Notes
TPP riboswitch aptamer (THI element): a 109-nucleotide RNA from Craterilacuibacter sinensis. The match comes from Rfam's covariance-model search (69 bits). Its family is annotated with thiamine pyrophosphate binding in the Gene Ontology. Taxonomically the source falls in Craterilacuibacter (Bacteria, Pseudomonadati, Neisseriales, Neisseriaceae).
[Rfam]
RNA sequence: GGCAUCGCUCCGGGGUGCCGGGCCGCAAGGCCCAGCUGAGAUGGUGAAUACCGAACCCGAUGGACUUGAUCCGGAUAAUACCGGCGUAAGAAGAGCAAUGACUGUUGGU
Numbered sequence: 001g002g003c004a005u006c007g008c009u010c011c012g013g014g015g016u017g018c019c020g021g022g023c024c025g026c027a028a029g030g031c032c033c034a035g036c037u038g039a040g041a042u043g044g045u046g047a048a049u050a051c052c053g054a055a056c057c058c059g060a061u062g063g064a065c066u067u068g069a070u071c072c073g074g075a076u077a078a079u080a081c082c083g084g085c086g087u088a089a090g091a092a093g094a095g096c097a098a099u100g101a102c103u104g105u106u107g108g109u
Stems, first nucleotide, its partner, number of pairs: 007096004011059004016053001017036002020033004043052003065090004071084004